[Rfam]
RNA sequence: ACGAGACGGGGGGACCGUCUGUCGACCGCGACCGAUAAACUGUUCUCGGACGACGUCGGGCGCAGCUCCCGUCCCGUCCGCCAAUGAUCAGCCAGCAGCCGCUGCAACCUCAGGGAG
Dot-bracket structure: ...............................................(((((....((((.......))))...))))).............((((....)))).............
Numbered sequence: 001a002c003g004a005g006a007c008g009g010g011g012g013g014a015c016c017g018u019c020u021g022u023c024g025a026c027c028g029c030g031a032c033c034g035a036u037a038a039a040c041u042g043u044u045c046u047c048g049g050a051c052g053a054c055g056u057c058g059g060g061c062g063c064a065g066c067u068c069c070c071g072u073c074c075c076g077u078c079c080g081c082c083a084a085u086g087a088u089c090a091g092c093c094a095g096c097a098g099c100c101g102c103u104g105c106a107a108c109c110u111c112a113g114g115g116a117g
Stems, first nucleotide, its partner, number of pairs: 048079005057071004093104004
Source information: The record is a 117-nucleotide RNA from Streptomyces sp. 3213.3, which matches "Streptomyces-metK RNA" in Rfam. The base pairs follow the family's consensus structure, which is taken from published work. A search with the family's covariance model found it, with a score of 119 bits.